This 170-nucleotide sequence from Neogale vison belongs to the Rfam family "TUC338". Lineage of the source: Eukaryota > Opisthokonta > Eumetazoa > Dipnotetrapodomorpha > Neogale. The literature on the family includes a 2011 paper in Proc Natl Acad Sci U S A by Braconi et al., "Expression and functional role of a transcribed noncoding RNA with an ultraconserved element in hepatocellular carcinoma". A search with the family's covariance model found it, with a score of 129 bits. Pairs were carried over by alignment from the consensus structure, which was predicted with WAR.
[Rfam]
RNA sequence: UUGAAGGCGUGGAGACUGAAGUCCUCUCUCUCCCCACAGAACAGGUAUGGCACAGACAGUGGCAUUGCAGCCUGCCACUGUCCACCAAUGUGCCUCAGUGCUAGCAGAGGGGCACUGUGUGCAGGGGAAGAGGGCAAUUCAGUCUCCAUGCCCUUCAAUCUUGGGUGACU
Number, nucleotide and partner (000 for none) at each position: 001u000002u157003g156004a155005a000006g152007g151008c000009g000010u148011g147012g146013a145014g144015a143016c142017u141018g140019a139020a138021g000022u000023c133024c132025u131026c130027u129028c000029u128030c127031u126032c125033c124034c000035c000036a000037c000038a102039g101040a000041a099042c000043a000044g000045g000046u000047a095048u000049g000050g093051c092052a091053c090054a089055g000056a000057c000058a000059g000060u000061g082062g081063c080064a079065u000066u000067g000068c000069a000070g000071c000072c000073u000074g000075c000076c000077a000078c000079u064080g063081u062082c061083c000084a000085c000086c000087a000088a000089u054090g053091u052092g051093c050094c000095u047096c000097a000098g000099u041100g000101c039102u038103a000104g000105c000106a118107g000108a116109g115110g000111g000112g000113c000114a000115c109116u108117g000118u106119g000120u000121g000122c000123a000124g033125g032126g031127g030128a029129a027130g026131a025132g024133g023134g000135c000136a000137a000138u020139u019140c018141a017142g016143u015144c014145u013146c012147c011148a010149u000150g000151c007152c006153c000154u000155u004156c003157a002158a000159u000160c000161u000162u000163g000164g000165g000166u000167g000168a000169c000170u000